A member of the RNA family "Exoribonuclease-resistant RNA (xrRNA) plant-infecting virus (class 3)" from Umbravirus nicotianae, 47 nucleotides long.
Taxonomically the source falls in Umbravirus nicotianae (Viruses, Tolucaviricetes, Tolivirales, Calvusvirinae).
About the family: Exoribonuclease-resistant RNA (xrRNA) plant-infecting virus (class 3) is a ncRNA that was reported in Plant viruses.
The family's consensus secondary structure is taken from published work.
For this family Rfam cites "The crystal structure of a Polerovirus exoribonuclease-resistant RNA shows how diverse sequences are integrated into a conserved fold" (Steckelberg et al., RNA, 2020).

[Rfam]
RNA sequence: AGUUAGCCAGGCAUAUGGUUGCAAGCGCUGGGGACGUAGUCCAUAAA
Numbered sequence: 001a002g003u004u005a006g007c008c009a010g011g012c013a014u015a016u017g018g019u020u021g022c023a024a025g026c027g028c029u030g031g032g033g034a035c036g037u038a039g040u041c042c043a044u045a046a047a
Base pairs, nucleotide, nucleotide: 003033007031008030010029011026012025014045015044016043017042018041

Description:
It is annotated as a cis-regulatory element.